[Rfam]
RNA sequence: AAGUAAAUAAAAGCGCCAGAACUGAUUGCAGUCUAUAAAUAAGCAGGUGAAAUUCCAGCUUAUCUGAAAUCAGUUGACGAGGAGGAGAUUAAUCGAGAAUUCGGCGGGAGUCUCCCGGCUGUGCAUGCAGUCGUUAUGCUUUAGCUACAAACCAAUCAGGUGACUGGUUGAACAGAGCGCUAAAGAACAUGCGAA
Numbered sequence: 001a002a003g004u005a006a007a008u009a010a011a012a013g014c015g016c017c018a019g020a021a022c023u024g025a026u027u028g029c030a031g032u033c034u035a036u037a038a039a040u041a042a043g044c045a046g047g048u049g050a051a052a053u054u055c056c057a058g059c060u061u062a063u064c065u066g067a068a069a070u071c072a073g074u075u076g077a078c079g080a081g082g083a084g085g086a087g088a089u090u091a092a093u094c095g096a097g098a099a100u101u102c103g104g105c106g107g108g109a110g111u112c113u114c115c116c117g118g119c120u121g122u123g124c125a126u127g128c129a130g131u132c133g134u135u136a137u138g139c140u141u142u143a144g145c146u147a148c149a150a151a152c153c154a155a156u157c158a159g160g161u162g163a164c165u166g167g168u169u170g171a172a173c174a175g176a177g178c179g180c181u182a183a184a185g186a187a188c189a190u191g192c193g194a195a
Stems, first nucleotide, its partner, number of pairs: 020075008029066003084115005093104004116133006139185007153170007
The record is a 195-nucleotide sequence from Listeria kieliensis, which matches "glmS glucosamine-6-phosphate activated ribozyme aptamer" in Rfam. It scores 143 bits against the family's covariance model. From the family's description: This entry contains a glucosamine-6-phosphate activated ribozyme that is found in the mRNA for GlmS. GlmS is an enzyme that uses fructose-6-phosphate and glutamine to generate glucosamine-6-phosphate. The ribozyme catalyses self cleavage of the glmS mRNA that is thought to regulate GlmS activity.